[Rfam]
Shown here is a 303-nucleotide RNA sequence from Coffea canephora, a member of the family "Plant signal recognition particle RNA".
RNA sequence: GCCGAGCUUGGUCGCGCGAGCUUGUGACCCGAGUGGGGGUAUUAAAGUGUUGGAACGUUGGAUUGUUCCAGAUGGUAGGCCUUGUGAAGCUAACUACCGGCCUGCCCAUUCUAAGCGGAGGGCUGAGCCAUGUGGUUUGAGCGGAGGCCUGGACCACUUGGCUCCUAAAGUGGAGGAUACUGCGUGAGGCUGGCUUGACAGAGCAACGAGAACAUCCCGCUCCUCGCAGUGGAAGGAUAACAGGCUAGAGCUGCACGAGUCCACUAUUGCCAAAUGGGUCAUCCUAAUUGGACCAACACUUUC
Numbered sequence: 001g002c003c004g005a006g007c008u009u010g011g012u013c014g015c016g017c018g019a020g021c022u023u024g025u026g027a028c029c030c031g032a033g034u035g036g037g038g039g040u041a042u043u044a045a046a047g048u049g050u051u052g053g054a055a056c057g058u059u060g061g062a063u064u065g066u067u068c069c070a071g072a073u074g075g076u077a078g079g080c081c082u083u084g085u086g087a088a089g090c091u092a093a094c095u096a097c098c099g100g101c102c103u104g105c106c107c108a109u110u111c112u113a114a115g116c117g118g119a120g121g122g123c124u125g126a127g128c129c130a131u132g133u134g135g136u137u138u139g140a141g142c143g144g145a146g147g148c149c150u151g152g153a154c155c156a157c158u159u160g161g162c163u164c165c166u167a168a169a170g171u172g173g174a175g176g177a178u179a180c181u182g183c184g185u186g187a188g189g190c191u192g193g194c195u196u197g198a199c200a201g202a203g204c205a206a207c208g209a210g211a212a213c214a215u216c217c218c219g220c221u222c223c224u225c226g227c228a229g230u231g232g233a234a235g236g237a238u239a240a241c242a243g244g245c246u247a248g249a250g251c252u253g254c255a256c257g258a259g260u261c262c263a264c265u266a267u268u269g270c271c272a273a274a275u276g277g278g279u280c281a282u283c284c285u286a287a288u289u290g291g292a293c294c295a296a297c298a299c300u301u302u303c
Stems, first nucleotide, its partner, number of pairs: 001040003004023007028037003044302010056290002058287003061283003065279002068277003073272005078262002081259005088252002091250001097248001099246006106236002109234005115227004120222004125164006132157008141148002165170001172217003176213001181210001183208003190201003

The family's consensus secondary structure is taken from published work. The family's RNA type in Rfam is non-coding RNA gene.